[Rfam]
RNA sequence: AUGUGACGCCGGGCCCCUCUGGCGGUGAAUGCUCACCGUGAUGUCGGAGUCACUUA
Numbered sequence: 001a002u003g004u005g006a007c008g009c010c011g012g013g014c015c016c017c018u019c020u021g022g023c024g025g026u027g028a029a030u031g032c033u034c035a036c037c038g039u040g041a042u043g044u045c046g047g048a049g050u051c052a053c054u055u056a
Base pairs, nucleotide, nucleotide: 006050007049009047010046011045012044022039023038024037025036026035027034028033
Overview:
The record is a 56-nucleotide RNA from Pseudomonas benzenivorans, which matches "terC RNA" in Rfam. Pairs were carried over by alignment from the consensus structure, which is taken from published work. NCBI's taxonomy places the organism under Bacteria, Pseudomonadati, Pseudomonadales, Pseudomonadaceae, Pseudomonas.